[Rfam]
RNA sequence: CGCGUAUUUCGCGGCGGCGGAGCUUGACCGCCCCUUUCCGCAAAUGAUCGCGUUCAUCGACGAUCACCGUCGUGUCUUUGGUGUCGGGCCGGUCUGGCGGGUUCCAAGGAUCGCACCA
Numbered sequence: 001c002g003c004g005u006a007u008u009u010c011g012c013g014g015c016g017g018c019g020g021a022g023c024u025u026g027a028c029c030g031c032c033c034c035u036u037u038c039c040g041c042a043a044a045u046g047a048u049c050g051c052g053u054u055c056a057u058c059g060a061c062g063a064u065c066a067c068c069g070u071c072g073u074g075u076c077u078u079u080g081g082u083g084u085c086g087g088g089c090c091g092g093u094c095u096g097g098c099g100g101g102u103u104c105c106a107a108g109g110a111u112c113g114c115a116c117c118a
Stems, first nucleotide, its partner, number of pairs: 016032005079118005090113002093110003099104001
This 118-nucleotide sequence from Paracoccus alcaliphilus belongs to the Rfam family "ALIL pseudoknot".
The match comes from Rfam's covariance-model search (82 bits).
It is annotated as a cis-regulatory element.
The source organism's lineage runs through Bacteria, Pseudomonadati, Pseudomonadota, Rhodobacterales and Paracoccus.